[Rfam]
RNA sequence: GCUCUGUGAUGAACCCCCAUGCGUGUCAUCUGAGCCUGGUUUUCCUGUUGUCUCAGCCCUGGAAGUGUUCUACUUCCAUGGCUGUUGUCAGACUCGGCAGGAGUUUGGGCAAAGGAUCAAUUUUUACAUUCUGAGAGC
Numbered sequence: 001g002c003u004c005u006g007u008g009a010u011g012a013a014c015c016c017c018c019a020u021g022c023g024u025g026u027c028a029u030c031u032g033a034g035c036c037u038g039g040u041u042u043u044c045c046u047g048u049u050g051u052c053u054c055a056g057c058c059c060u061g062g063a064a065g066u067g068u069u070c071u072a073c074u075u076c077c078a079u080g081g082c083u084g085u086u087g088u089c090a091g092a093c094u095c096g097g098c099a100g101g102a103g104u105u106u107g108g109g110c111a112a113a114g115g116a117u118c119a120a121u122u123u124u125u126a127c128a129u130u131c132u133g134a135g136a137g138c
Stems, first nucleotide, its partner, number of pairs: 001138004043102008

This 138-nucleotide sequence from Chrysochloris asiatica belongs to the Rfam family "Small nucleolar RNA SNORD10". A search with the family's covariance model found it, with a score of 117 bits.